[Rfam]
RNA sequence: UUGCGUACCAGUAGACCUUAUCUGGUUAUUCUGAUAGCCAGAUGAGGGGGAUAGUGCAUGCUAGAAAGAAGCUGGGGUUGCUGUAGGCUGUGAUCAGCUUCCACGUGGCUGAUUGAACUGCAAUACUCCAACAUGU
Numbered sequence: 001u002u003g004c005g006u007a008c009c010a011g012u013a014g015a016c017c018u019u020a021u022c023u024g025g026u027u028a029u030u031c032u033g034a035u036a037g038c039c040a041g042a043u044g045a046g047g048g049g050g051a052u053a054g055u056g057c058a059u060g061c062u063a064g065a066a067a068g069a070a071g072c073u074g075g076g077g078u079u080g081c082u083g084u085a086g087g088c089u090g091u092g093a094u095c096a097g098c099u100u101c102c103a104c105g106u107g108g109c110u111g112a113u114u115g116a117a118c119u120g121c122a123a124u125a126c127u128c129c130a131a132c133a134u135g136u
Stems, first nucleotide, its partner, number of pairs: 003061004008056001016047009074129004079125001082122003094112005
The family of this 136-nucleotide RNA from Amazona collaria is "Small nucleolar RNA SNORA58". ACA52 is a member of the H/ACA class of snoRNA that guide the sites of modification of uridines to pseudouridines. The source organism's lineage runs through Eukaryota, Bilateria, Tetrapoda, Archelosauria and Amazona. Rfam classes the family as an H/ACA-box small nucleolar RNA. Clan: SNORA44 clan. It scores 91 bits against the family's covariance model.